Notes:
A member of the RNA family "SAM (S-adenosyl methionine) riboswitch aptamer" from Actinoplanes sp. OR16, 116 nucleotides long. Rfam 15.1 lists 2,360 matches to the family in 1,305 species. Taxonomically the source falls in Actinoplanes (Bacteria, Bacillati, Actinomycetota, Actinomycetes). For this family Rfam cites "The aptamer core of SAM-IV riboswitches mimics the ligand-binding site of SAM-I riboswitches" (Weinberg et al., RNA, 2008). The family's consensus secondary structure is taken from published work. Rfam links the family to the GO terms S-adenosylmethionine metabolic process and regulation of gene expression.

RNA sequence: GGUCAUGAGUGCCAGCAGAAAGCCCCGGCUUGCUGGCCGGCAACCCUUGCGUUCGCGAUGGGGUGCCCCGGGUGAGGACCGGGCCGUGUGCGAUCCCGCCACGGCAAGCGCGAGCC
Numbered sequence: 001g002g003u004c005a006u007g008a009g010u011g012c013c014a015g016c017a018g019a020a021a022g023c024c025c026c027g028g029c030u031u032g033c034u035g036g037c038c039g040g041c042a043a044c045c046c047u048u049g050c051g052u053u054c055g056c057g058a059u060g061g062g063g064u065g066c067c068c069c070g071g072g073u074g075a076g077g078a079c080c081g082g083g084c085c086g087u088g089u090g091c092g093a094u095c096c097c098g099c100c101a102c103g104g105c106a107a108g109c110g111c112g113a114g115c116c
Stems, first nucleotide, its partner, number of pairs: 001080004009038001011037006021030002039067003044063003048058001050057001083105006090099003
Dot-bracket structure: ((((....(.((((((....((......)).)))))))(((..(((.(.(......))..))).))).........))))..((((((.(((....)))))))))...........